Rfam assigns this 112-nucleotide RNA sequence from Vibrio tapetis to the family "Qrr RNA". The base pairs follow the family's consensus structure, which is taken from published work. From the family's description: This family represents a set of small RNAs (the Qrr RNAs) that are thought to be involved in the regulation of quorum sensing in Vibrio species. It is believed that these RNAs, guided by a protein, Hfq, can mediate the destabilisation of the quorum-sensing master regulators LuxR/HapR mRNAs.
[Rfam]
RNA sequence: UGACCCUUUUUAAAGCCGAGGGUCACCUAGCCAACUGACGUUGUUAGUGAAUCUAUUUGUUCACAAUAUAUAUCGGCCAAUCGCACUAUUAUUUGCGAUUGGCUUUUUUUGC
Numbered sequence: 001u002g003a004c005c006c007u008u009u010u011u012a013a014a015g016c017c018g019a020g021g022g023u024c025a026c027c028u029a030g031c032c033a034a035c036u037g038a039c040g041u042u043g044u045u046a047g048u049g050a051a052u053c054u055a056u057u058u059g060u061u062c063a064c065a066a067u068a069u070a071u072a073u074c075g076g077c078c079a080a081u082c083g084c085a086c087u088a089u090u091a092u093u094u095g096c097g098a099u100u101g102g103c104u105u106u107u108u109u110u111g112c
Base pairs, nucleotide, nucleotide: 001025002024003023004022005021006020041075043073044072047064048063049062050061051060052059077102078101079100080099081098082097083096084095

Lineage of the source: Bacteria > Pseudomonadati > Pseudomonadota > Gammaproteobacteria > Vibrio tapetis. Rfam links the family to the GO term quorum sensing.